[Rfam]
RNA sequence: GGCACAAACUCCAAGUAGAGUAGUUUAGUAGGGUCAGAUGAUCCUUCUAAUCCACCAUACUUCAAAUUUGGGCCA
Numbered sequence: 001g002g003c004a005c006a007a008a009c010u011c012c013a014a015g016u017a018g019a020g021u022a023g024u025u026u027a028g029u030a031g032g033g034u035c036a037g038a039u040g041a042u043c044c045u046u047c048u049a050a051u052c053c054a055c056c057a058u059a060c061u062u063c064a065a066a067u068u069u070g071g072g073c074c075a
Stems, first nucleotide, its partner, number of pairs: 001074003005070004013062005020055002023052001025050004030045001032043004
RNA: mir-5928 microRNA precursor family
Organism: Haemonchus placei